RNA sequence: GCAAGUCCUGCUUCUAGUUCAUUUUUCAAAUCUUCUAUUCAAAAUUUUGUUCAGAAUUUGAAUAGGAGAUUUGAGAAUUGAACUAGAAGCGGGACUUUCGC
Numbered sequence: 001g002c003a004a005g006u007c008c009u010g011c012u013u014c015u016a017g018u019u020c021a022u023u024u025u026u027c028a029a030a031u032c033u034u035c036u037a038u039u040c041a042a043a044a045u046u047u048u049g050u051u052c053a054g055a056a057u058u059u060g061a062a063u064a065g066g067a068g069a070u071u072u073g074a075g076a077a078u079u080g081a082a083c084u085a086g087a088a089g090c091g092g093g094a095c096u097u098u099c100g101c
Base pairs, nucleotide, nucleotide: 001099003097004096005095006094007093008092009091010090011089012088013087014086015085016084017083018082019081020080021079023077024076025075026074027073028072029071030070031069032068033067034066036064037063038062039061040060041059042058043057045056046055047054048053
The family of this 101-nucleotide RNA from Brachypodium distachyon is "MIR5185 microRNA precursor family".
The source organism's lineage runs through Eukaryota, Petrosaviidae, commelinids, Brachypodieae and Brachypodium.
The family's consensus secondary structure was predicted with RNAalifold.
Gene Ontology terms of the family: miRNA-mediated post-transcriptional gene silencing and RISC complex.